This 94-nucleotide RNA from Nocardia wallacei belongs to the Rfam family "SAM riboswitch aptamer (S box leader)". From the family's description: The SAM riboswitch is found upstream of a number of genes which code for proteins involved in methionine or cysteine biosynthesis in Gram-positive bacteria. Lineage of the source: Bacteria > Bacillati > Actinomycetes > Mycobacteriales > Nocardia. The family's consensus secondary structure is taken from published work.
[Rfam]
RNA sequence: CACCCAUCCAGAGCGGUUGAGAGACCUGGCUCGACGAGACCGCAGCAACCCCCCGCUCGCCGGGUGCGGGUGCUACCGCCAGGGCCGAUGGAGG
Numbered sequence: 001c002a003c004c005c006a007u008c009c010a011g012a013g014c015g016g017u018u019g020a021g022a023g024a025c026c027u028g029g030c031u032c033g034a035c036g037a038g039a040c041c042g043c044a045g046c047a048a049c050c051c052c053c054c055g056c057u058c059g060c061c062g063g064g065u066g067c068g069g070g071u072g073c074u075a076c077c078g079c080c081a082g083g084g085c086c087g088a089u090g091g092a093g094g
Base pairs, nucleotide, nucleotide: 001094004091005090006089007088008087013043014042015041016040017039021032022031023030026082027081028080029079044074045073046072047071049070050069051066053064054063078086